[Rfam]
RNA sequence: AGUGACUACUCUCUCCCGUCGGAGAUUUCUUCACUACUAAUCUUAGUAUGUUUUUCUACACUCAAAAAAGCUCCAUAAUCUCCAUAGUGGUUUUACCCACUACAGAAAUUAUAGAGCC
Dot-bracket structure: (((((.........................)))))..((..(...)..))...................((((.(((((.((..((((((......))))))..)).))))).)))).

Rfam assigns this 118-nucleotide RNA sequence from Streptococcus hyointestinalis to the family "Streptococcus RNA 266". The family has 4 seed sequences and 223 matches in Rfam 15.1. NCBI's taxonomy places the organism under Bacteria, Bacillota, Lactobacillales, Streptococcaceae, Streptococcus. Rfam classes the family as a small RNA.